[Rfam]
RNA sequence: AACAUCAUAUUAAACUCGCAAAAUGCAGUACCAUUAUGGGUUCUUUAAUUCUUUAAAAGGACCUGAGGAAGAUUCAUUUCCACUAUAUCUUUCAAUUUCGUUGUUUUGGUAUCUGUUUAAGCGUAGAUAAAAUUGAUCGUUGCUGGGCGCCUUAUGUUGAUUUUUCAUAUGAGACAUUGGGAAUCAGCUGAAUCCACAUUU
Dot-bracket structure: ................(((.....((((.((((.....(((..(((.........)))..))).(.(((.(((.............))).......))).).....))))..))))....)))...........(((((..........((..(((((..(.......)...)))))..)).......))).)).......

The record is a 201-nucleotide sequence from Naumovozyma dairenensis, which matches "Small nucleolar RNA snR32" in Rfam. Rfam classes the family as an H/ACA-box small nucleolar RNA. Pairs were carried over by alignment from the consensus structure, which was predicted with WAR. Its family is annotated with nucleolus and RNA processing in the Gene Ontology. A search with the family's covariance model found it, with a score of 126 bits.